[Rfam]
The record is a 75-nucleotide RNA from Xanthomonas oryzae, which matches "Xanthomonas sRNA sX9" in Rfam. The organism belongs to Xanthomonas oryzae pv. oryzae, within Bacteria. The literature on the family includes a 2011 paper in Nucleic Acids Res by Schmidtke et al., "Genome-wide transcriptome analysis of the plant pathogen Xanthomonas identifies sRNAs with putative virulence functions". The family has 16 seed sequences and 309 matches in Rfam 15.1.

RNA sequence: AUGUCCCACUCGAACACUCCGGUUCCUCUGCGCCGUCCGCAGCCAGCUGACGGCGCUCGCUACGUGUUUUAGCCG
Numbered sequence: 001a002u003g004u005c006c007c008a009c010u011c012g013a014a015c016a017c018u019c020c021g022g023u024u025c026c027u028c029u030g031c032g033c034c035g036u037c038c039g040c041a042g043c044c045a046g047c048u049g050a051c052g053g054c055g056c057u058c059g060c061u062a063c064g065u066g067u068u069u070u071a072g073c074c075g
Stems, first nucleotide, its partner, number of pairs: 002016003006012001020035004025030001047072004052068002